[Rfam]
RNA sequence: GCGAUGAGCUGGUUUGUGUAAGACGAGGAACAAGGCACUACAUGUGAAUGUGAACACAUGGUUCACUCGCCACAAACGAUCGAAGACGUCUAUAUUUAUAUAGGCGUU
Numbered sequence: 001g002c003g004a005u006g007a008g009c010u011g012g013u014u015u016g017u018g019u020a021a022g023a024c025g026a027g028g029a030a031c032a033a034g035g036c037a038c039u040a041c042a043u044g045u046g047a048a049u050g051u052g053a054a055c056a057c058a059u060g061g062u063u064c065a066c067u068c069g070c071c072a073c074a075a076a077c078g079a080u081c082g083a084a085g086a087c088g089u090c091u092a093u094a095u096u097u098a099u100a101u102a103g104g105c106g107u108u
Base pairs, nucleotide, nucleotide: 014075015074016073017072018071024069025068026067027066028064029063030062031061041060042059044057045056046055085108086107087106088105089104090103091102092101093100
Overview
A member of the RNA family "BsrF" from Oceanobacillus zhaokaii, 108 nucleotides long. The literature on the family includes a 2008 paper in Gene by Saito et al., "Novel small RNA-encoding genes in the intergenic regions of Bacillus subtilis". By type it is a small RNA. Lineage of the source: Bacteria > Bacillati > Bacillota > Caryophanales > Oceanobacillus.